[Rfam]
Rfam assigns this 109-nucleotide RNA from Paenibacillus sp. FSL H8-0548 to the family "TPP riboswitch aptamer (THI element)". The base pairs follow the family's consensus structure, which is taken from published work.
RNA sequence: UUAAUAGUAUCCGGGAGCUAGGAGCACCUAGCUGAGAGGAAAACUAAUCUGUUUUCGACCGUACCUGAUCUGGAUAAUGCCAGCGUAGGGACAUAAGCUCUGUUGAUAG
Numbered sequence: 001u002u003a004a005u006a007g008u009a010u011c012c013g014g015g016a017g018c019u020a021g022g023a024g025c026a027c028c029u030a031g032c033u034g035a036g037a038g039g040a041a042a043a044c045u046a047a048u049c050u051g052u053u054u055u056c057g058a059c060c061g062u063a064c065c066u067g068a069u070c071u072g073g074a075u076a077a078u079g080c081c082a083g084c085g086u087a088g089g090g091a092c093a094u095a096a097g098c099u100c101u102g103u104u105g106a107u108a109g
Stems, first nucleotide, its partner, number of pairs: 008095003012061003017032005039056005064089004070083004

It scores 58 bits against the family's covariance model. Taxonomically the source falls in Paenibacillus (Bacteria, Bacillota, Bacilli, Caryophanales). Its family is annotated with thiamine pyrophosphate binding in the Gene Ontology.